Rfam assigns this 100-nucleotide RNA from Flavobacterium sp. KMS to the family "SAM riboswitch aptamer (S box leader)". A search with the family's covariance model found it, with a score of 79 bits.
RNA sequence: UACUUAUCCAGAAAGACUGAGGGAUUAGGCCCUGUGACGUCUUAGCAACCUGUUGCUUAAUAAGGUGCUAAAUCCUACCGUUGUAAUGGACAGAUAAGAA
Numbered sequence: 001u002a003c004u005u006a007u008c009c010a011g012a013a014a015g016a017c018u019g020a021g022g023g024a025u026u027a028g029g030c031c032c033u034g035u036g037a038c039g040u041c042u043u044a045g046c047a048a049c050c051u052g053u054u055g056c057u058u059a060a061u062a063a064g065g066u067g068c069u070a071a072a073u074c075c076u077a078c079c080g081u082u083g084u085a086a087u088g089g090a091c092a093g094a095u096a097a098g099a100a
Stems, first nucleotide, its partner, number of pairs: 001100001003098006013043005021032003026077004044069004049065002051062004073092001078089004